Bacterial large subunit ribosomal RNA: a 342-nucleotide part of an RNA from Ohtaekwangia koreensis. The family is grouped with related families in Rfam's "LSU clan".

[Rfam]
RNA sequence: CGAGUGAGUCAUGGCUAAGGAACUAGGCAAAUUAACCCUGUAACUUCGGGAGAAGGGGUGCCUCCUCUAGCAAUAGAGAGGUCGCAGAGAAAUGGUCCAGGCGACUGUUUAACAAAAACACAUGGCUAUGCGAAAUCGAAAGAUGAAGUAUAUGGCCUGACACCUGCCCGGUGCUGGAAGGUUAAGGGGGGAUGUUAGUCGCAAGGCGAAGCAUUGAACUGAAGCCCCAGUAAACGGCGGCCGUAACUAUAACGGUCCUAAGGUAGCGAAAUUCCUUGUCGGGUAAGUUCCGACCUGCACGAAUGGUGUAACGAUCUGGACGCUGUCUCAGCCAUGAGCUCG
Numbered sequence: 001c002g003a004g005u006g007a008g009u010c011a012u013g014g015c016u017a018a019g020g021a022a023c024u025a026g027g028c029a030a031a032u033u034a035a036c037c038c039u040g041u042a043a044c045u046u047c048g049g050g051a052g053a054a055g056g057g058g059u060g061c062c063u064c065c066u067c068u069a070g071c072a073a074u075a076g077a078g079a080g081g082u083c084g085c086a087g088a089g090a091a092a093u094g095g096u097c098c099a100g101g102c103g104a105c106u107g108u109u110u111a112a113c114a115a116a117a118a119c120a121c122a123u124g125g126c127u128a129u130g131c132g133a134a135a136u137c138g139a140a141a142g143a144u145g146a147a148g149u150a151u152a153u154g155g156c157c158u159g160a161c162a163c164c165u166g167c168c169c170g171g172u173g174c175u176g177g178a179a180g181g182u183u184a185a186g187g188g189g190g191g192a193u194g195u196u197a198g199u200c201g202c203a204a205g206g207c208g209a210a211g212c213a214u215u216g217a218a219c220u221g222a223a224g225c226c227c228c229a230g231u232a233a234a235c236g237g238c239g240g241c242c243g244u245a246a247c248u249a250u251a252a253c254g255g256u257c258c259u260a261a262g263g264u265a266g267c268g269a270a271a272u273u274c275c276u277u278g279u280c281g282g283g284u285a286a287g288u289u290c291c292g293a294c295c296u297g298c299a300c301g302a303a304u305g306g307u308g309u310a311a312c313g314a315u316c317u318g319g320a321c322g323c324u325g326u327c328u329c330a331g332c333c334a335u336g337a338g339c340u341c342g
Stems, first nucleotide, its partner, number of pairs: 001342004009337008018328003035059005044049001060082005067076003083087001095321007102313002106120003124157007131148001135144003161308004166238003171235002173231005180226003186220002191215005198207002239257006258262001268295001278294006
The base pairs follow the family's consensus structure, which is taken from published work.